[Rfam]
RNA sequence: GUCAAAAUAAGAACUUAUCGAAUAGAUCUAUAUAAAUGGAAUCUGCCAGGUGGCAGAAA
Number, nucleotide and partner (000 for none) at each position: 001g000002u000003c000004a000005a000006a000007a000008u000009a000010a000011g000012a000013a000014c000015u000016u000017a000018u000019c000020g000021a000022a000023u000024a000025g000026a000027u040028c039029u038030a037031u036032a000033u000034a000035a000036a031037u030038g029039g028040a027041a000042u057043c056044u055045g054046c053047c052048a000049g000050g000051u000052g047053g046054c045055a044056g043057a042058a000059a000
RNA: RAGATH-30 RNA